[Rfam]
RNA sequence: UACUCUCCGUGUUCACUGUGUAUGUCUUGAUGUUUCCUUUGAUUAUCAUAAGGCACGCGGUGAAUGCCAAGAGU
Numbered sequence: 001u002a003c004u005c006u007c008c009g010u011g012u013u014c015a016c017u018g019u020g021u022a023u024g025u026c027u028u029g030a031u032g033u034u035u036c037c038u039u040u041g042a043u044u045a046u047c048a049u050a051a052g053g054c055a056c057g058c059g060g061u062g063a064a065u066g067c068c069a070a071g072a073g074u
Base pairs, nucleotide, nucleotide: 003073004072005071006070009067010066011065012064013063014062015061016060018058019057020056025053026052027051030049031048032047
A member of the RNA family "mir-124 microRNA precursor family" from Tetranychus urticae, 74 nucleotides long.
Taxonomically the source falls in Tetranychus (Eukaryota, Trombidiformes, Prostigmata, Raphignathae).